Small nucleolar RNA SNORA23: a 187-nucleotide sequence from Tupaia belangeri. The members of this family belong to the H/ACA class of snoRNAs which are thought to guide the sites of modification of uridines to pseudouridines. This family includes human snoRNA ACA23 (SNORA23) and mouse snoMBI-1. ACA23 is predicted to guide the pseudouridylation of residue U3737 and U4331 of 28S rRNA.
[Rfam]
RNA sequence: GCUGCAAUGUGUGCACAGUUCAUCCUCUAUCUGUGUCUGGUAGCAGUGUCUGUCUGUGUUUUACAUUCAGACUUGCUAUUCACACAAACGUCAUGCAGCCAGAUAGUAACUAGGGAACAUAGUACUGGUCUAGUGUUGUCUUUAGGACAAAUCCACCGCUGACCAGCCUCCUAAUUCCCGCACACAG
Numbered sequence: 001g002c003u004g005c006a007a008u009g010u011g012u013g014c015a016c017a018g019u020u021c022a023u024c025c026u027c028u029a030u031c032u033g034u035g036u037c038u039g040g041u042a043g044c045a046g047u048g049u050c051u052g053u054c055u056g057u058g059u060u061u062u063a064c065a066u067u068c069a070g071a072c073u074u075g076c077u078a079u080u081c082a083c084a085c086a087a088a089c090g091u092c093a094u095g096c097a098g099c100c101a102g103a104u105a106g107u108a109a110c111u112a113g114g115g116a117a118c119a120u121a122g123u124a125c126u127g128g129u130c131u132a133g134u135g136u137u138g139u140c141u142u143u144a145g146g147a148c149a150a151a152u153c154c155a156c157c158g159c160u161g162a163c164c165a166g167c168c169u170c171c172u173a174a175u176u177c178c179c180g181c182a183c184a185c186a187g
Base pairs, nucleotide, nucleotide: 013096014095015094034086035085036084038082039081040080041078042077043076044075045074046073048072049071050070051069052068055065056064057063113179114178115177116176125166126165127164128163129162130161132160133159134158135157137151138148139147140146
The organism belongs to Tupaia belangeri, within Eukaryota. It scores 158 bits against the family's covariance model. The family's consensus secondary structure was predicted with RNAalifold.